The family of this 73-nucleotide RNA from Chlorobium chlorochromatii is "Chlorobi-RRM RNA". Rfam classes the family as a cis-regulatory element. Taxonomically the source falls in Chlorobium chlorochromatii (Bacteria, Pseudomonadati, Chlorobiales, Chlorobiaceae).

RNA sequence: AAUUAGUCAAUGGUUGACUGAUUCGCUACUCAAGUAAUUUGUGCGUUGGUUACUUGACGGUAUCUCUUUUUCU
Numbered sequence: 001a002a003u004u005a006g007u008c009a010a011u012g013g014u015u016g017a018c019u020g021a022u023u024c025g026c027u028a029c030u031c032a033a034g035u036a037a038u039u040u041g042u043g044c045g046u047u048g049g050u051u052a053c054u055u056g057a058c059g060g061u062a063u064c065u066c067u068u069u070u071u072c073u
Base pairs, nucleotide, nucleotide: 003021004020005019006018007017008016009015010014023062025061026060027059030057031056032055033054034053035052036051037050038049039048